Shown here is a 113-nucleotide RNA from Mediterraneibacter sp. gm002, a member of the family "TPP riboswitch aptamer (THI element)". Pairs were carried over by alignment from the consensus structure, which is taken from published work. NCBI's taxonomy places the organism under Bacteria, Bacillati, Bacillota, Lachnospirales, Mediterraneibacter. It scores 61 bits against the family's covariance model.

RNA sequence: AUAUUGUCACUGGGGAGCUGGCGAAAGCCGGCUGAGAGGAAACGUAAUUCCGUUUCGACCCAUUUAAACCUGAUUUGGAUAAUGCCAACGGAGGGAAUGUAUACCAUGUAAUU
Numbered sequence: 001a002u003a004u005u006g007u008c009a010c011u012g013g014g015g016a017g018c019u020g021g022c023g024a025a026a027g028c029c030g031g032c033u034g035a036g037a038g039g040a041a042a043c044g045u046a047a048u049u050c051c052g053u054u055u056c057g058a059c060c061c062a063u064u065u066a067a068a069c070c071u072g073a074u075u076u077g078g079a080u081a082a083u084g085c086c087a088a089c090g091g092a093g094g095g096a097a098u099g100u101a102u103a104c105c106a107u108g109u110a111a112u113u
Base pairs, nucleotide, nucleotide: 008099009098011062012061013060014059017032018031019030020029021028039056040055041054042053043052069094070093071092075088076087077086078085